The record is a 106-nucleotide RNA from Shewanella cyperi, which matches "TPP riboswitch aptamer (THI element)" in Rfam.
The base pairs follow the family's consensus structure, which is taken from published work.
The literature on the family includes a 2002 paper in J Biol Chem by Rodionov et al., "Comparative genomics of thiamin biosynthesis in procaryotes. New genes and regulatory mechanisms".
NCBI's taxonomy places the organism under Bacteria, Pseudomonadati, Pseudomonadota, Alteromonadales, Shewanella.
It scores 72 bits against the family's covariance model.
[Rfam]
RNA sequence: GUCGCUGCCAAGGGGUGUCUGCCGAUUGCAGACUGAGAUGUCACAUGACAAACCCUUAGAACCUGAUCCGGCUGAUACCGGCGUAGGAAUGGGCCAUCUGCACACU
Numbered sequence: 001g002u003c004g005c006u007g008c009c010a011a012g013g014g015g016u017g018u019c020u021g022c023c024g025a026u027u028g029c030a031g032a033c034u035g036a037g038a039u040g041u042c043a044c045a046u047g048a049c050a051a052a053c054c055c056u057u058a059g060a061a062c063c064u065g066a067u068c069c070g071g072c073u074g075a076u077a078c079c080g081g082c083g084u085a086g087g088a089a090u091g092g093g094c095c096a097u098c099u100g101c102a103c104a105c106u
Stems, first nucleotide, its partner, number of pairs: 008092003011056004016050001017033005040049003062087004068081004